[Rfam]
RNA: MIR1428 microRNA precursor family
RNA sequence: GCACUUUGCGAAUUCGCAGGCCCUAUCCUGUGGUAUGAACUGAGUACGCGAUAAUUUAUGGUGCAUAUUAGGGGCUUACCAUAAGAUAAUGCCAUGAAUUCGCAAAGUGU
Numbered sequence: 001g002c003a004c005u006u007u008g009c010g011a012a013u014u015c016g017c018a019g020g021c022c023c024u025a026u027c028c029u030g031u032g033g034u035a036u037g038a039a040c041u042g043a044g045u046a047c048g049c050g051a052u053a054a055u056u057u058a059u060g061g062u063g064c065a066u067a068u069u070a071g072g073g074g075c076u077u078a079c080c081a082u083a084a085g086a087u088a089a090u091g092c093c094a095u096g097a098a099u100u101c102g103c104a105a106a107g108u109g110u
Stems, first nucleotide, its partner, number of pairs: 002109015019093003024088004029083007037075001040072002043069004048064003